[Rfam]
The record is a 104-nucleotide sequence from Candidatus Brocadia fulgida, which matches "c-di-GMP-I-GGC riboswitch aptamer" in Rfam. A search with the family's covariance model found it, with a score of 62 bits. The family is grouped with related families in Rfam's "c-di-GMP_I riboswitch clan".

RNA sequence: AUCGAUAAAGGCAAACCCUGAGUGAUCAGGGGGCGCAAAGUGAAGGAUCUUUGAAGUAGUGGCAUGCUCAUAAAGUAUGCUGAAAGAUAGCCUUACUGCCGAAA
Numbered sequence: 001a002u003c004g005a006u007a008a009a010g011g012c013a014a015a016c017c018c019u020g021a022g023u024g025a026u027c028a029g030g031g032g033g034c035g036c037a038a039a040g041u042g043a044a045g046g047a048u049c050u051u052u053g054a055a056g057u058a059g060u061g062g063c064a065u066g067c068u069c070a071u072a073a074a075g076u077a078u079g080c081u082g083a084a085a086g087a088u089a090g091c092c093u094u095a096c097u098g099c100c101g102a103a104a
Stems, first nucleotide, its partner, number of pairs: 003101002011036002016031006034090001039097004044093003047088006